[Rfam]
Shown here is a 100-nucleotide RNA sequence from Gossypium gossypioides, a member of the family "Small nucleolar RNA Z103".
RNA sequence: AUGGAAGUGAUGAUUAUUUCCCCAGAUGAUCGAAGCUGAACAGACUGUGCGAUUUUUUUCUCUAAUUCGUUAGAGAUUCCAAGCCAGAACUCUGAUCCAU
Numbered sequence: 001a002u003g004g005a006a007g008u009g010a011u012g013a014u015u016a017u018u019u020c021c022c023c024a025g026a027u028g029a030u031c032g033a034a035g036c037u038g039a040a041c042a043g044a045c046u047g048u049g050c051g052a053u054u055u056u057u058u059u060c061u062c063u064a065a066u067u068c069g070u071u072a073g074a075g076a077u078u079c080c081a082a083g084c085c086a087g088a089a090c091u092c093u094g095a096u097c098c099a100u
Stems, first nucleotide, its partner, number of pairs: 001100005
Dot-bracket structure: (((((..........................................................................................)))))
For this family Rfam cites "The high diversity of snoRNAs in plants: identification and comparative study of 120 snoRNA genes from Oryza sativa" (Chen et al., Nucleic Acids Res, 2003). The base pairs follow the family's consensus structure, which was predicted with PFOLD. It is annotated as a C/D-box small nucleolar RNA. The source organism's lineage runs through Eukaryota, eudicotyledons, Malvaceae, Malvoideae and Gossypium.